Shown here is a 78-nucleotide RNA sequence from Laticauda laticaudata, a member of the family "Mammalian CPEB3 ribozyme". Pairs were carried over by alignment from the consensus structure, which is taken from published work. Rfam's curators write: The mammalian CPEB3 ribozyme is a self cleaving RNA located in the second intron of the CPEB3 gene which belongs to a family of genes regulating messenger RNA polyadenylation. This ribozyme is highly conserved and found only in mammals. For this family Rfam cites "A genomewide search for ribozymes reveals an HDV-like sequence in the human CPEB3 gene" (Salehi-Ashtiani et al., Science, 2006). Taxonomically the source falls in Laticauda (Eukaryota, Vertebrata, Unidentata, Episquamata). It scores 45 bits against the family's covariance model.
[Rfam]
RNA sequence: AGUGUAGAAAACUCUUCCAUAGAAGGAGCAUUCACAUCGCGGCCCCUGUCAGGUAUCUGUUUACCUGCAAAUCCUUCU
Numbered sequence: 001a002g003u004g005u006a007g008a009a010a011a012c013u014c015u016u017c018c019a020u021a022g023a024a025g026g027a028g029c030a031u032u033c034a035c036a037u038c039g040c041g042g043c044c045c046c047u048g049u050c051a052g053g054u055a056u057c058u059g060u061u062u063a064c065c066u067g068c069a070a071a072u073c074c075u076u077c078u
Stems, first nucleotide, its partner, number of pairs: 017042002021078007028040002050067006